[Rfam]
Nucleotides: 102
Stems, first nucleotide, its partner, number of pairs: 019087007029049001031047005058078007
Number, partner (000 for none) and nucleotide at each position: 001000a002000a003000a004000u005000u006000a007000g008000a009000c010000c011000u012000c013000a014000a015000a016000g017000a018000a019087g020086c021085u022084u023083a024082u025081a026000u027000a028000a029049u030000g031047g032046u033045u034044g035043u036000a037000a038000u039000a040000u041000g042000g043035a044034c045033a046032a047031c048000g049029a050000g051000u052000u053000u054000c055000u056000a057000c058078c059077u060076g061075u062074a063073a064072a065000c066000c067000u068000u069000a070000a071000a072064u073063u074062u075061a076060c077059a078058g079000a080000c081025u082024a083023u084022a085021a086020g087019u088000g089000a090000u091000u092000a093000a094000a095000a096000u097000a098000u099000a100000u101000a102000g
The family of this 102-nucleotide sequence from Fusobacterium sp. FSA-380-WT-3A is "Purine riboswitch aptamer". The organism belongs to Fusobacterium, within Bacteria. From the family's description: Riboswitches are metabolite binding domains within certain messenger RNAs that serve as precision sensors for their corresponding targets. Allosteric rearrangement of mRNA structure is mediated by ligand binding, and this results in modulation of gene expression. A class of riboswitches that selectively recognises guanine and becomes saturated at concentrations as low as 5 nM. In Bacillus subtilis, this mRNA motif is located on at least five separate transcriptional units that together encode 17 genes that are mostly involved in purine transport and purine nucleotide biosynthesis.